[Rfam]
RNA sequence: AACCGUGAGUUCGGGUUUAGAAUUCCUACGCUUUACCGUAAUUUUGAAUGGUAAAGCGUCUGGAUUCUGAAUCGGAAUUCAU
Number, nucleotide and partner (000 for none) at each position: 001a000002a000003c000004c000005g000006u000007g000008a000009g000010u076011u075012c074013g000014g073015g072016u071017u070018u069019a068020g067021a066022a000023u064024u063025c062026c000027u000028a059029c058030g057031c056032u055033u054034u053035a000036c051037c050038g000039u000040a000041a000042u000043u000044u000045u000046g000047a000048a000049u000050g037051g036052u000053a034054a033055a032056g031057c030058g029059u028060c000061u000062g025063g024064a023065u000066u021067c020068u019069g018070a017071a016072u015073c014074g012075g011076a010077a000078u000079u000080c000081a000082u000

mir-927 microRNA precursor family: an 82-nucleotide RNA sequence from Psylliodes chrysocephalus. For this family Rfam cites "Evolution, biogenesis, expression, and target predictions of a substantially expanded set of Drosophila microRNAs" (Ruby et al., Genome Res, 2007). The family's consensus secondary structure was predicted with RNAalifold. The family has 16 seed sequences and 174 matches in Rfam 15.1. The match comes from Rfam's covariance-model search (70 bits).